The family of this 37-nucleotide RNA from Nostoc sp. PCC 7107 is "CRISPR RNA direct repeat element". Taxonomically the source falls in Nostoc (Bacteria, Cyanobacteriota, Nostocales, Nostocaceae). Its family is annotated with defense response in the Gene Ontology. A search with the family's covariance model found it, with a score of 38 bits. The family's consensus secondary structure was predicted with WAR.
RNA sequence: CUUUCAACUCAUCCCUAGCUGGGAUAGUUGUUGAAAC
Numbered sequence: 001c002u003u004u005c006a007a008c009u010c011a012u013c014c015c016u017a018g019c020u021g022g023g024a025u026a027g028u029u030g031u032u033g034a035a036a037c
Stems, first nucleotide, its partner, number of pairs: 005033004009027001013023003